[Rfam]
RNA: mir-456 microRNA precursor family
Organism: Petromyzon marinus
RNA sequence: CCGUGUGCAGGCAUCUUUCCAGCCUACACGUGGGGUCCUGAUUCUGCAGGCUGGUUAGAUGGUUGUCACAUGC
Numbered sequence: 001c002c003g004u005g006u007g008c009a010g011g012c013a014u015c016u017u018u019c020c021a022g023c024c025u026a027c028a029c030g031u032g033g034g035g036u037c038c039u040g041a042u043u044c045u046g047c048a049g050g051c052u053g054g055u056u057a058g059a060u061g062g063u064u065g066u067c068a069c070a071u072g073c
Stems, first nucleotide, its partner, number of pairs: 007066004012061005019054007030047006